A member of the RNA family "Group II catalytic intron D1-D4-3" from Aedoeadaptatus ivorii, 171 nucleotides long. The match comes from Rfam's covariance-model search (120 bits). From the family's description: Group II introns are found in rRNA, tRNA and mRNA of organelles in fungi, plants and protists, and also in mRNA in bacteria. Rfam links the family to the GO term Group II intron splicing. The organism belongs to Aedoeadaptatus, within Bacteria.
RNA sequence: CACGCCGUGAGGCAUGGGAGAGAGGAAGCAAUAGAAAAAUCGUGGCCUGACGAACAGGAACAGAAUACAAGGCGAGUUAGGUGGAUAAGUUGGCUGGAGACAACAAAGUCCAAAAGAUAACCGUAAUCCUAAAACGUAAAUUCUGCAGGUAAACGAGGAAAGAUAUAUGAC
Numbered sequence: 001c002a003c004g005c006c007g008u009g010a011g012g013c014a015u016g017g018g019a020g021a022g023a024g025g026a027a028g029c030a031a032u033a034g035a036a037a038a039a040u041c042g043u044g045g046c047c048u049g050a051c052g053a054a055c056a057g058g059a060a061c062a063g064a065a066u067a068c069a070a071g072g073c074g075a076g077u078u079a080g081g082u083g084g085a086u087a088a089g090u091u092g093g094c095u096g097g098a099g100a101c102a103a104c105a106a107a108g109u110c111c112a113a114a115a116g117a118u119a120a121c122c123g124u125a126a127u128c129c130u131a132a133a134a135c136g137u138a139a140a141u142u143c144u145g146c147a148g149g150u151a152a153a154c155g156a157g158g159a160a161a162g163a164u165a166u167a168u169g170a171c
Stems, first nucleotide, its partner, number of pairs: 001016002004013003028171001031168002035164001040156004045150005061145006072137003077132005083111004089104004